[Rfam]
RNA: Plastid-psbM 3UTR RNA
RNA sequence: GAUCCGAUAGUAUGGUAGAAAGAAAUAUAUGAAUUAUUCUACCAUACUAUCUAUUAUUGUUAUUGAAGUGUAUAAAAUUGUACUC
Number, nucleotide and partner (000 for none) at each position: 001g000002a000003u000004c000005c000006g051007a050008u049009a048010g047011u046012a045013u044014g043015g042016u041017a040018g039019a038020a037021a000022g035023a034024a000025a000026u000027a000028u000029a000030u000031g000032a000033a000034u023035u022036a000037u020038u019039c018040u017041a016042c015043c014044a013045u012046a011047c010048u009049a008050u007051c006052u000053a000054u000055u000056a000057u000058u000059g000060u000061u000062a000063u000064u000065g000066a000067a000068g000069u000070g000071u000072a000073u000074a000075a000076a000077a000078u000079u000080g000081u000082a000083c000084u000085c000